The family of this 382-nucleotide RNA sequence from Photobacterium halotolerans is "Bacterial RNase P class A". The organism belongs to Photobacterium, within Bacteria.

[Rfam]
RNA sequence: UGAGUUGACCAGGUAACCGCUGCUUCGUUGAUGUCCUUUGGGAGACUGACGAGGGGGAGGAAAGUCCGGGCUCCACAGGACAGGGUGCCAGAUAACGUCUGGGGGGCGUGAGCCUACGACCAGUGCAGCAGAGAGCAAACCGCCGAUGACUCGCUUGCGAGAACAGGUAAGGGUGAAAGGGUGCGGUAAGAGCGCACCGCGCGACUGGCAACAGUUCGUGGCACGGUAAACUCCACCCGGAGCAAGACCAAAUAGGUCCCUAAUGGCGUGGUCCGCGCUGGGGACGGGUAGGUUGCUUGAGCCUGCGAGCGAUUUCAGGCCUAGAGGAAUGGUUACCACCGCGCAAGCGGGACAGAACCCGGCUUAUCGGUUAACUCACUUA
Number, nucleotide and partner (000 for none) at each position: 001u378002g377003a376004g375005u374006u373007g372008a371009c370010c369011a367012g337013g336014u335015a334016a333017c332018c331019g000020c057021u056022g000023c054024u053025u052026c051027g050028u049029u048030g047031a000032u000033g000034u000035c000036c000037u000038u000039u000040g000041g000042g000043a000044g000045a000046c000047u030048g029049a028050c027051g026052a025053g024054g023055g000056g021057g020058a000059g000060g000061a000062a365063a364064g363065u000066c362067c361068g360069g359070g358071c242072u241073c240074c239075a000076c000077a000078g274079g273080a272081c271082a000083g238084g237085g236086u235087g234088c102089c101090a100091g099092a098093u000094a000095a000096c000097g000098u092099c091100u090101g089102g088103g117104g115105g114106g113107c112108g000109u000110g000111a000112g107113c106114c105115u104116a000117c103118g233119a232120c000121c000122a000123g231124u230125g227126c226127a000128g000129c000130a000131g000132a000133g000134a000135g000136c000137a000138a000139a000140c172141c171142g168143c167144c166145g000146a000147u000148g000149a000150c161151u160152c159153g158154c000155u000156u000157g000158c153159g152160a151161g150162a000163a000164c000165a000166g144167g143168u142169a000170a000171g141172g140173g000174u000175g000176a000177a000178a000179g000180g198181g197182u196183g195184c194185g193186g000187u000188a000189a000190g000191a000192g000193c185194g184195c183196a182197c181198c180199g222200c220201g219202c218203g217204a216205c214206u213207g212208g000209c000210a000211a000212c207213a206214g205215u000216u204217c203218g202219u201220g200221g000222c199223a000224c000225g000226g126227u125228a000229a000230a124231c123232u119233c118234c087235a086236c085237c084238c083239g074240g073241a072242g071243c000244a000245a000246g294247a293248c292249c291250a000251a000252a000253u000254a000255g000256g285257u284258c283259c282260c281261u280262a000263a000264u000265g279266g278267c277268g276269u275270g000271g081272u080273c079274c078275g269276c268277g267278c266279u265280g261281g260282g259283g258284a257285c256286g000287g000288g000289u000290a000291g249292g248293u247294u246295g000296c000297u000298u000299g000300a000301g320302c319303c318304u317305g316306c000307g314308a313309g000310c000311g000312a000313u308314u307315u000316c305317a304318g303319g302320c301321c000322u000323a000324g000325a000326g000327g000328a000329a000330u000331g018332g017333u016334u015335a014336c013337c012338a000339c000340c000341g000342c000343g000344c000345a000346a000347g000348c000349g000350g000351g000352a000353c000354a000355g000356a000357a000358c070359c069360c068361g067362g066363c064364u063365u062366a000367u011368c000369g010370g009371u008372u007373a006374a005375c004376u003377c002378a001379c000380u000381u000382a000